[Rfam]
RNA sequence: UUUAUCUAAAUACUAAAUCACACACGUGUCGACACAUUCUUCGGGGUGCCCUCAGCUGUUAACUGCGGGGUCGAAGACAUGGGAUACGUGGAGGUCUAAC
Numbered sequence: 001u002u003u004a005u006c007u008a009a010a011u012a013c014u015a016a017a018u019c020a021c022a023c024a025c026g027u028g029u030c031g032a033c034a035c036a037u038u039c040u041u042c043g044g045g046g047u048g049c050c051c052u053c054a055g056c057u058g059u060u061a062a063c064u065g066c067g068g069g070g071u072c073g074a075a076g077a078c079a080u081g082g083g084a085u086a087c088g089u090g091g092a093g094g095u096c097u098a099a100c
Base pairs, nucleotide, nucleotide: 023090024089025088026087027086028085029084030083035081036080037079040075041074042073043072048071049070050069051068052067
Background:
The family of this 100-nucleotide sequence from Shewanella oneidensis is "t44 RNA". The literature on the family includes a 2002 paper in Nucleic Acids Res by Tjaden et al., "Transcriptome analysis of Escherichia coli using high-density oligonucleotide probe arrays". A search with the family's covariance model found it, with a score of 78 bits. Rfam's curators write: This family consists of a number of bacterial RNA genes of between 135 and 170 bases in length. The t44 gene has been identified in several species of enteric bacteria but homologs have also been identified in Pseudomonas and Coxiella species. The t44 gene is found between the map and rpsB genes in all species in the full alignment apart from Shigella flexneri. The base pairs follow the family's consensus structure, which was predicted with LocARNA. It is annotated as a small RNA.